[Rfam]
RNA sequence: CAGUGUUAUAGUUCUUUUAGAAUUUGUCUAGCGAGUUUUCUGGUUUUCCACAAAACCUCC
Numbered sequence: 001c002a003g004u005g006u007u008a009u010a011g012u013u014c015u016u017u018u019a020g021a022a023u024u025u026g027u028c029u030a031g032c033g034a035g036u037u038u039u040c041u042g043g044u045u046u047u048c049c050a051c052a053a054a055a056c057c058u059c060c
Base pairs, nucleotide, nucleotide: 035056036055037054038053039052041050042049043048